[Rfam]
Shown here is an 85-nucleotide RNA sequence, a member of the family "c-di-GMP-II-GAG riboswitch aptamer". Rfam's curators put it in the seed alignment.
RNA sequence: CGGUUGGGUGGGUCCAUCGACCGUCGUGGCGUAUUCGGACGCUUUACCACGACGCGAGGAAAUAGCGAGACCGACCACCCCCUUU
Numbered sequence: 001c002g003g004u005u006g007g008g009u010g011g012g013u014c015c016a017u018c019g020a021c022c023g024u025c026g027u028g029g030c031g032u033a034u035u036c037g038g039a040c041g042c043u044u045u046a047c048c049a050c051g052a053c054g055c056g057a058g059g060a061a062a063u064a065g066c067g068a069g070a071c072c073g074a075c076c077a078c079c080c081c082c083u084u085u
Base pairs, nucleotide, nucleotide: 002084003083006080007079008078009077010076011075013060014059015058022054023053024052025051026050027049028048029047037072038071040067041066042065043064

The base pairs follow the family's consensus structure, which is taken from published work.